[Rfam]
RNA sequence: AAAGUUCCACCGGAAAAGCGUAGACCCAGCGCAUUCCGUAUCGAGUCUUGGGCUUGUGUCGGUAACGGCACAGGCUAAGCGUAGACAGAGAGAUUGCAGGCCGUAAGCAUUUGCUGAAGUGAUUGAGCCCCGAAAAAAGUAUGUUGGAAUGGCCGAUGAUUUCGAUGAUUCAGAAGGCAAUAUUCCAUGUGUCGUUUAUGGGAAGAUACACGGAGCAUUCCCGGGGUCUGAGAGCA
Numbered sequence: 001a002a003a004g005u006u007c008c009a010c011c012g013g014a015a016a017a018g019c020g021u022a023g024a025c026c027c028a029g030c031g032c033a034u035u036c037c038g039u040a041u042c043g044a045g046u047c048u049u050g051g052g053c054u055u056g057u058g059u060c061g062g063u064a065a066c067g068g069c070a071c072a073g074g075c076u077a078a079g080c081g082u083a084g085a086c087a088g089a090g091a092g093a094u095u096g097c098a099g100g101c102c103g104u105a106a107g108c109a110u111u112u113g114c115u116g117a118a119g120u121g122a123u124u125g126a127g128c129c130c131c132g133a134a135a136a137a138a139g140u141a142u143g144u145u146g147g148a149a150u151g152g153c154c155g156a157u158g159a160u161u162u163c164g165a166u167g168a169u170u171c172a173g174a175a176g177g178c179a180a181u182a183u184u185c186c187a188u189g190u191g192u193c194g195u196u197u198a199u200g201g202g203a204a205g206a207u208a209c210a211c212g213g214a215g216c217a218u219u220c221c222c223g224g225g226g227u228c229u230g231a232g233a234g235c236a
Stems, first nucleotide, its partner, number of pairs: 012037004018032003025202002039091001041089002045086004049081002051076011124230001125228001127227006146221006152178003157172003183215004188210006

Rfam assigns this 236-nucleotide sequence from Desulfobacter postgatei to the family "Group II catalytic intron D1-D4-6". The base pairs follow the family's consensus structure. On this family, see Bonen and Vogel, Trends Genet 2001: "The ins and outs of group II introns". Group II introns are found in rRNA, tRNA and mRNA of organelles in fungi, plants and protists, and also in mRNA in bacteria. A search with the family's covariance model found it, with a score of 151 bits. Its family is annotated with Group II intron splicing in the Gene Ontology.